Shown here is a 110-nucleotide sequence from Morella rubra, a member of the family "Small nucleolar RNA Z152/R70/R12/". Its family is annotated with RNA processing and nucleolus in the Gene Ontology. A reference for the family is Barneche et al. (2001), "Identification of 66 box C/D snoRNAs in Arabidopsis thaliana: extensive gene duplications generated multiple isoforms predicting new ribosomal RNA 2'-O-methylation sites", J Mol Biol. NCBI's taxonomy places the organism under Eukaryota, Streptophytina, Mesangiospermae, eudicotyledons, Morella. By type it is a C/D-box small nucleolar RNA.
RNA sequence: GAUGCUGUGAUGAGGAUGAACACGUGGAAUGUGUUUUGGGCAGUGGACGAGAGCUGAAAGGUCUCGCCGUGAGCUCAUUUUAUUAACGACUUCUCCUUCCACUGAGCAAU
Numbered sequence: 001g002a003u004g005c006u007g008u009g010a011u012g013a014g015g016a017u018g019a020a021c022a023c024g025u026g027g028a029a030u031g032u033g034u035u036u037u038g039g040g041c042a043g044u045g046g047a048c049g050a051g052a053g054c055u056g057a058a059a060g061g062u063c064u065c066g067c068c069g070u071g072a073g074c075u076c077a078u079u080u081u082a083u084u085a086a087c088g089a090c091u092u093c094u095c096c097u098u099c100c101a102c103u104g105a106g107c108a109a110u
Stems, first nucleotide, its partner, number of pairs: 001110001003108003